[Rfam]
RNA sequence: GUAAGAGUGAUAUGAAAAAGCCUUUGGAGUCGAAACAUGGCAAGACGCCCAGAGGCUUUUCAUUU
Numbered sequence: 001g002u003a004a005g006a007g008u009g010a011u012a013u014g015a016a017a018a019a020g021c022c023u024u025u026g027g028a029g030u031c032g033a034a035a036c037a038u039g040g041c042a043a044g045a046c047g048c049c050c051a052g053a054g055g056c057u058u059u060u061c062a063u064u065u
Stems, first nucleotide, its partner, number of pairs: 016060007026050002029046003

Rfam assigns this 65-nucleotide sequence from Rippkaea orientalis to the family "Cyano-1 RNA". It is one of the family's seed sequences. The source organism's lineage runs through Bacteria, Cyanobacteriota, Cyanophyceae, Chroococcales and Rippkaea orientalis.